[Rfam]
Shown here is a 108-nucleotide RNA from Nocardioides kongjuensis, a member of the family "TPP riboswitch aptamer (THI element)".
Pairs were carried over by alignment from the consensus structure, which is taken from published work.
Rfam's curators write: Vitamin B(1) in its active form thiamin pyrophosphate (TPP) is an essential coenzyme that is synthesised by coupling of pyrimidine and thiazole moieties in bacteria. The previously detected thiamin-regulatory element, thi box was extended, resulting in a new, highly conserved RNA secondary structure, the THI element, which is widely distributed in eubacteria and also occurs in some archaea.
RNA sequence: CCACAAGCACACGGGCGCUCCAGCCAGGAGCUGAGAGGGAGCUAGCGCGCUCCAACCGUUGAACCUGACCCGGGUCAUACCGGCGGAGGAAGUGAGAGGUCAUGAUUC
Numbered sequence: 001c002c003a004c005a006a007g008c009a010c011a012c013g014g015g016c017g018c019u020c021c022a023g024c025c026a027g028g029a030g031c032u033g034a035g036a037g038g039g040a041g042c043u044a045g046c047g048c049g050c051u052c053c054a055a056c057c058g059u060u061g062a063a064c065c066u067g068a069c070c071c072g073g074g075u076c077a078u079a080c081c082g083g084c085g086g087a088g089g090a091a092g093u094g095a096g097a098g099g100u101c102a103u104g105a106u107u108c
Base pairs, nucleotide, nucleotide: 008094009093010092011059012058013057014056017031018030019029020028021027038053039052040051041050042049064089065088066087070083071082072081073080